[Rfam]
RNA sequence: CAUCCCAAUGAAGAGUUAUAUAAAAAUUAAAAGUAGUGGACUGAAUUUCUAUUGAUGAGCAAUGGAUUCUGAGGGAUG
Number, nucleotide and partner (000 for none) at each position: 001c078002a077003u076004c075005c074006c073007a000008a000009u000010g000011a000012a000013g000014a000015g000016u000017u000018a000019u000020a000021u000022a000023a000024a000025a000026a000027u000028u000029a000030a000031a000032a000033g000034u000035a000036g000037u000038g000039g000040a000041c000042u000043g000044a000045a000046u000047u000048u000049c000050u000051a000052u000053u000054g000055a000056u000057g000058a000059g000060c000061a000062a000063u000064g000065g000066a000067u000068u000069c000070u000071g000072a000073g006074g005075g004076a003077u002078g001
RNA: Small nucleolar RNA R21
Organism: Quercus lobata